Rfam assigns this 166-nucleotide RNA sequence from Mus musculus to the family "U1 spliceosomal RNA". The literature on the family includes a 1997 paper in Nucleic Acids Res by Zwieb, "The uRNA database". Taxonomically the source falls in Mus (Eukaryota, Eumetazoa, Myomorpha, Mus). The family's consensus secondary structure is taken from published work. It is annotated as a spliceosomal small nuclear RNA. U1 is a small nuclear RNA (snRNA) component of the spliceosome (involved in pre-mRNA splicing). Its 5' end forms complementary base pairs with the 5' splice junction, thus defining the 5' donor site of an intron. There are significant differences in sequence and secondary structure between metazoan and yeast U1 snRNAs, the latter being much longer (568 nucleotides as compared to 164 nucleotides in human).
[Rfam]
RNA sequence: GAACUUCAGAAGAAGGUAAGGGCAUGAUCACGAAGGUGGUUUUCCCAGGGCGAGGCUUAUCCAUUGCACUCCAGAUGUGCUGACCCCUGUGAUUUCCCCAAAUGCGGGAAAUUCGACUGCAUAAUUUGUUUGUGGUAGUGGGGGACUGCGUUCGUGCUCUCCCCUG
Numbered sequence: 001g002a003a004c005u006u007c008a009g010a011a012g013a014a015g016g017u018a019a020g021g022g023c024a025u026g027a028u029c030a031c032g033a034a035g036g037u038g039g040u041u042u043u044c045c046c047a048g049g050g051c052g053a054g055g056c057u058u059a060u061c062c063a064u065u066g067c068a069c070u071c072c073a074g075a076u077g078u079g080c081u082g083a084c085c086c087c088u089g090u091g092a093u094u095u096c097c098c099c100a101a102a103u104g105c106g107g108g109a110a111a112u113u114c115g116a117c118u119g120c121a122u123a124a125u126u127u128g129u130u131u132g133u134g135g136u137a138g139u140g141g142g143g144g145a146c147u148g149c150g151u152u153c154g155u156g157c158u159c160u161c162c163c164c165u166g
Stems, first nucleotide, its partner, number of pairs: 009120001011118002015045002018042002021040001023038003047088004052084001054081003058077004090115003093111003097107002140165006148157003